[Rfam]
Shown here is a 55-nucleotide RNA from Thermococcus sibiricus, a member of the family "Small nucleolar RNA sR46". It scores 72 bits against the family's covariance model. It is annotated as a C/D-box small nucleolar RNA. The family's consensus secondary structure was predicted with WAR.

RNA sequence: UGCGAUGAUGAAUGAAUCCAAUGCUGACUGGAUGAUUGGCCCCAAUUGGCUGAGC
Numbered sequence: 001u002g003c004g005a006u007g008a009u010g011a012a013u014g015a016a017u018c019c020a021a022u023g024c025u026g027a028c029u030g031g032a033u034g035a036u037u038g039g040c041c042c043c044a045a046u047u048g049g050c051u052g053a054g055c
Stems, first nucleotide, its partner, number of pairs: 002024002007018003